[Rfam]
RNA sequence: GGAACAAUGGCAACUUCCAUAUACACAUUUUUUUGGAAAGGUGAACAAAAUCAGUGAAAACUCAAUACCAUCCUCCUCAUCGACCUGAGGUCC
Numbered sequence: 001g002g003a004a005c006a007a008u009g010g011c012a013a014c015u016u017c018c019a020u021a022u023a024c025a026c027a028u029u030u031u032u033u034u035g036g037a038a039a040g041g042u043g044a045a046c047a048a049a050a051u052c053a054g055u056g057a058a059a060a061c062u063c064a065a066u067a068c069c070a071u072c073c074u075c076c077u078c079a080u081c082g083a084c085c086u087g088a089g090g091u092c093c
Base pairs, nucleotide, nucleotide: 001093002092003091005089026056027055028054029053033048034047035046
Rfam assigns this 93-nucleotide sequence from Saimiri boliviensis to the family "Small nucleolar RNA SNORD116". The organism belongs to Saimiri boliviensis, within Eukaryota. It is annotated as a C/D-box small nucleolar RNA. Its family is annotated with RNA processing and nucleolus in the Gene Ontology. The family's consensus secondary structure was predicted with PFOLD.